[Rfam]
RNA sequence: GGAUGGAUGAUGAGUCCCACAAAUGCAUUCCUUGGAAAUCUGAACAAAAUGAUUGAGAAAUCCAUACCGUCUCCUCAUCGUAACUGAGGUCC
Numbered sequence: 001g002g003a004u005g006g007a008u009g010a011u012g013a014g015u016c017c018c019a020c021a022a023a024u025g026c027a028u029u030c031c032u033u034g035g036a037a038a039u040c041u042g043a044a045c046a047a048a049a050u051g052a053u054u055g056a057g058a059a060a061u062c063c064a065u066a067c068c069g070u071c072u073c074c075u076c077a078u079c080g081u082a083a084c085u086g087a088g089g090u091c092c
Stems, first nucleotide, its partner, number of pairs: 001092004026055002029052002032047003
RNA: Small nucleolar RNA SNORD116
Organism: Physeter macrocephalus